[Rfam]
This 52-nucleotide sequence from Tropicibacter naphthalenivorans belongs to the Rfam family "serC leader".
The base pairs follow the family's consensus structure.
Rfam's curators write: This family is a putative regulatory RNA structure that is found upstream of the serC-serA operon in some alpha-proteobacteria.
The literature on the family includes a 2005 paper in Genome Biol by Corbino et al., "Evidence for a second class of S-adenosylmethionine riboswitches and other regulatory RNA motifs in alpha-proteobacteria".
A search with the family's covariance model found it, with a score of 66 bits.
Rfam classes the family as a cis-regulatory leader.
RNA sequence: CCACGGGACACCCUUCCCCAACGAAGGGCAUCUAUCUGGAAGGUUAGCAGAU
Numbered sequence: 001c002c003a004c005g006g007g008a009c010a011c012c013c014u015u016c017c018c019c020a021a022c023g024a025a026g027g028g029c030a031u032c033u034a035u036c037u038g039g040a041a042g043g044u045u046a047g048c049a050g051a052u
Stems, first nucleotide, its partner, number of pairs: 011028006032047003036043002
Dot-bracket structure: ..........((((((......))))))...(((.((....)).))).....